Rfam assigns this 31-nucleotide RNA from Tobamovirus cacti to the family "Pseudoknot of upstream pseudoknot domain (UPD) of the 3'UTR". A search with the family's covariance model found it, with a score of 41 bits. The family's consensus secondary structure is taken from published work. Taxonomically the source falls in Tobamovirus cacti (Viruses, Riboviria, Orthornavirae, Virgaviridae). By type it is a cis-regulatory element.
RNA sequence: AGUGUUUCCCAGUCCACUUAAAUCGAACUGG
Numbered sequence: 001a002g003u004g005u006u007u008c009c010c011a012g013u014c015c016a017c018u019u020a021a022a023u024c025g026a027a028c029u030g031g
Stems, first nucleotide, its partner, number of pairs: 001018004009031005014025001